[Rfam]
RNA: c-di-AMP riboswitch aptamer (ydaO/yuaA leader)
RNA sequence: GCAGCGGCAACGCCGAGUCCGCCGCAGCGCGGAGCCGGGGACCCAAAGGCCGGUGUCCAGUUCGUCUGGACCGGCACCGUCCCGGGGUGAAUCGGCGCGCCUCUCCCCUCGAACCCUCGAACGGGGCACGCCGUAGGUCGACUUCCACGUCCGAACCCGUCAGCUAACCCGGUAGGCGUCUGGAAGAAGGAGAU
Numbered sequence: 001g002c003a004g005c006g007g008c009a010a011c012g013c014c015g016a017g018u019c020c021g022c023c024g025c026a027g028c029g030c031g032g033a034g035c036c037g038g039g040g041a042c043c044c045a046a047a048g049g050c051c052g053g054u055g056u057c058c059a060g061u062u063c064g065u066c067u068g069g070a071c072c073g074g075c076a077c078c079g080u081c082c083c084g085g086g087g088u089g090a091a092u093c094g095g096c097g098c099g100c101c102u103c104u105c106c107c108c109u110c111g112a113a114c115c116c117u118c119g120a121a122c123g124g125g126g127c128a129c130g131c132c133g134u135a136g137g138u139c140g141a142c143u144u145c146c147a148c149g150u151c152c153g154a155a156c157c158c159g160u161c162a163g164c165u166a167a168c169c170c171g172g173u174a175g176g177c178g179u180c181u182g183g184a185a186g187a188a189g190g191a192g193a194u
Base pairs, nucleotide, nucleotide: 011178012177013176014175018033019032020031021030022029034173035172036171037170038169039168044084085158086157087156093133094132095131096130136152137151139149